Small nucleolar RNA SNORA24: a 135-nucleotide RNA from Podarcis lilfordi.
RNA sequence: CUCCAUGCUUCCAUGGGACCUGCCAGCGUGGCAGCCUCCCUUCCUAUUCAUGGUAGAGCAAACGGUCACCUUGCCCCUUGGCAUAGCUCGCACCAUUUAAUUGGGGCGAGACUCUGACUAGGGCAAGUAACAGCG
Numbered sequence: 001c002u003c004c005a006u007g008c009u010u011c012c013a014u015g016g017g018a019c020c021u022g023c024c025a026g027c028g029u030g031g032c033a034g035c036c037u038c039c040c041u042u043c044c045u046a047u048u049c050a051u052g053g054u055a056g057a058g059c060a061a062a063c064g065g066u067c068a069c070c071u072u073g074c075c076c077c078u079u080g081g082c083a084u085a086g087c088u089c090g091c092a093c094c095a096u097u098u099a100a101u102u103g104g105g106g107c108g109a110g111a112c113u114c115u116g117a118c119u120a121g122g123g124c125a126a127g128u129a130a131c132a133g134c135g
Stems, first nucleotide, its partner, number of pairs: 003053005015040004020034005072132002078126003082121001087110003093104003

Rfam classes the family as an H/ACA-box small nucleolar RNA. The family's consensus secondary structure was predicted with RNAfold. ACA24 is a member of the H/ACA class of snoRNA that guide the sites of modification of uridines to pseudouridines. The match comes from Rfam's covariance-model search (67 bits).